A member of the RNA family "Small nucleolar RNA snoR53Y" from Tetracentron sinense, 84 nucleotides long. NCBI's taxonomy places the organism under Eukaryota, Streptophyta, Streptophytina, Spermatophyta, Tetracentron. For this family Rfam cites "Multiple snoRNA gene clusters from Arabidopsis" (Brown et al., RNA, 2001). The family has 7 seed sequences and 513 matches in Rfam 15.1. A search with the family's covariance model found it, with a score of 60 bits.
RNA sequence: GUUCCCAAUGAUGCUCUUAAUUCAACCAUGCUAAUACUGAAAUACUUUGAUGAGCAAUUCUUCUUUUGAUCUUCUGAGGGAACC
Numbered sequence: 001g002u003u004c005c006c007a008a009u010g011a012u013g014c015u016c017u018u019a020a021u022u023c024a025a026c027c028a029u030g031c032u033a034a035u036a037c038u039g040a041a042a043u044a045c046u047u048u049g050a051u052g053a054g055c056a057a058u059u060c061u062u063c064u065u066u067u068g069a070u071c072u073u074c075u076g077a078g079g080g081a082a083c084c
Base pairs, nucleotide, nucleotide: 001083002082003081004080005079